[Rfam]
RNA sequence: GGUAAUAAAUGGACAAUGGAAUAAGCCCAUUGGACCCGGGGGCGGUACCCGGCGCCUCCACCAAAAUAUAAUCAAUAAAGCUUAUACUUUGGUGGGGGCGAAAUAGGAUCGACAAGGGUGUAAAGAUUGCUCUUUUACUCGGCAUUGUACCACCGUCAUCGGACUAAAUUAGUAGUUGCAAACGACAACUAUGCGGAAGCACGUCUCGCUGCUUAA
Numbered sequence: 001g002g003u004a005a006u007a008a009a010u011g012g013a014c015a016a017u018g019g020a021a022u023a024a025g026c027c028c029a030u031u032g033g034a035c036c037c038g039g040g041g042g043c044g045g046u047a048c049c050c051g052g053c054g055c056c057u058c059c060a061c062c063a064a065a066a067u068a069u070a071a072u073c074a075a076u077a078a079a080g081c082u083u084a085u086a087c088u089u090u091g092g093u094g095g096g097g098g099c100g101a102a103a104u105a106g107g108a109u110c111g112a113c114a115a116g117g118g119u120g121u122a123a124a125g126a127u128u129g130c131u132c133u134u135u136u137a138c139u140c141g142g143c144a145u146u147g148u149a150c151c152a153c154c155g156u157c158a159u160c161g162g163a164c165u166a167a168a169u170u171a172g173u174a175g176u177u178g179c180a181a182a183c184g185a186c187a188a189c190u191a192u193g194c195g196g197a198a199g200c201a202c203g204u205c206u207c208g209c210u211g212c213u214u215a216a
Base pairs, nucleotide, nucleotide: 001139002138003137004136005135014129015128016127017126026118027117028116030115031114032113036052037051038050039049040048053100054099055098056097057096058095059094060093061092062091140155141154142153
Notes
The record is a 216-nucleotide RNA sequence from Bartonella bovis, which matches "permuted transfer-messenger RNA" in Rfam. On this family, see Williams and Bartel, RNA 1996: "Phylogenetic analysis of tmRNA secondary structure". Bacterial tmRNA, also known as 10Sa RNA or SsrA, is named for its dual tRNA and mRNA-like properties. Taxonomically the source falls in Bartonella bovis (Bacteria, Pseudomonadota, Alphaproteobacteria, Hyphomicrobiales). It scores 155 bits against the family's covariance model.